Overview:
Shown here is a 100-nucleotide sequence from Cercocebus atys, a member of the family "Y RNA". Pairs were carried over by alignment from the consensus structure, which is taken from published work. It is annotated as a non-coding RNA gene. Y RNAs are components of the Ro ribonucleoprotein particle (Ro RNP), in association with Ro60 and La proteins. The Y RNAs and Ro60 and La proteins are well conserved, but the function of the Ro RNP is not known. The organism belongs to Cercocebus, within Eukaryota.
RNA sequence: GACUGGUCCGAAGGCAGUAAGUUAUCUCGAUUGUUCAAUUACAGAUCAAGCUCCUAUUCUAUUCUUUCUAGUUCUGACUACUACACUUCACUAGUCUUAA
Numbered sequence: 001g002a003c004u005g006g007u008c009c010g011a012a013g014g015c016a017g018u019a020a021g022u023u024a025u026c027u028c029g030a031u032u033g034u035u036c037a038a039u040u041a042c043a044g045a046u047c048a049a050g051c052u053c054c055u056a057u058u059c060u061a062u063u064c065u066u067u068c069u070a071g072u073u074c075u076g077a078c079u080a081c082u083a084c085a086c087u088u089c090a091c092u093a094g095u096c097u098u099a100a
Stems, first nucleotide, its partner, number of pairs: 001096007010088002014084001016079003020075002033062002037058002